[Rfam]
The family of this 227-nucleotide RNA sequence from Miscanthus lutarioriparius is "MIR6217 microRNA precursor family".

RNA sequence: UGUUCUGGGAAUAACUUAAUCUGUGGCCACUUUGAAUUACGAUAGUUAUUAUGCUAAUUUAUAAGACUACAUUAACUCCUUAAUAAGUAAUUUACUAUAACAUUAUGGUAAAUAUCACCGUGAGUUGUAGUAACACGAGUAUCGUAAAUGCAUAUUCAUAUUAUCGUAAAUUGGUACAAACAUUAUCGUAAAUCAAGGUGGCUAUAGAAUAAGUUAUUCUAUGACCA
Numbered sequence: 001u002g003u004u005c006u007g008g009g010a011a012u013a014a015c016u017u018a019a020u021c022u023g024u025g026g027c028c029a030c031u032u033u034g035a036a037u038u039a040c041g042a043u044a045g046u047u048a049u050u051a052u053g054c055u056a057a058u059u060u061a062u063a064a065g066a067c068u069a070c071a072u073u074a075a076c077u078c079c080u081u082a083a084u085a086a087g088u089a090a091u092u093u094a095c096u097a098u099a100a101c102a103u104u105a106u107g108g109u110a111a112a113u114a115u116c117a118c119c120g121u122g123a124g125u126u127g128u129a130g131u132a133a134c135a136c137g138a139g140u141a142u143c144g145u146a147a148a149u150g151c152a153u154a155u156u157c158a159u160a161u162u163a164u165c166g167u168a169a170a171u172u173g174g175u176a177c178a179a180a181c182a183u184u185a186u187c188g189u190a191a192a193u194c195a196a197g198g199u200g201g202c203u204a205u206a207g208a209a210u211a212a213g214u215u216a217u218u219c220u221a222u223g224a225c226c227a
Stems, first nucleotide, its partner, number of pairs: 001227002004224002008220011020208014037191010050178001052176011065165002069161001071159001074155001080147003087142003091138002093132009103122001108116001
Description: Pairs were carried over by alignment from the consensus structure, which was predicted with RNAalifold. The family has 2 seed sequences and 2,266 matches in Rfam 15.1.